[Rfam]
RNA: Antisense RNA which regulates isiA expression
RNA sequence: GAUAGCCAAAAAUAGUUCUGGGAUCUACCACAGGGCUGGUCACCAGACGCACCGCUUUCAGCUCGGGGUCAUACAGUCCUCCCCAGAUCAUGGCCUUGGCCACCAAGAGCAGUGCGCCCAGACCCAGAAGUAUUAGGUGAAUCCCCAGAAUGGUGGUCAUCUUAUUGGCAUCGUCCCA
Numbered sequence: 001g002a003u004a005g006c007c008a009a010a011a012a013u014a015g016u017u018c019u020g021g022g023a024u025c026u027a028c029c030a031c032a033g034g035g036c037u038g039g040u041c042a043c044c045a046g047a048c049g050c051a052c053c054g055c056u057u058u059c060a061g062c063u064c065g066g067g068g069u070c071a072u073a074c075a076g077u078c079c080u081c082c083c084c085a086g087a088u089c090a091u092g093g094c095c096u097u098g099g100c101c102a103c104c105a106a107g108a109g110c111a112g113u114g115c116g117c118c119c120a121g122a123c124c125c126a127g128a129a130g131u132a133u134u135a136g137g138u139g140a141a142u143c144c145c146c147a148g149a150a151u152g153g154u155g156g157u158c159a160u161c162u163u164a165u166u167g168g169c170a171u172c173g174u175c176c177c178a
Stems, first nucleotide, its partner, number of pairs: 136175005145168004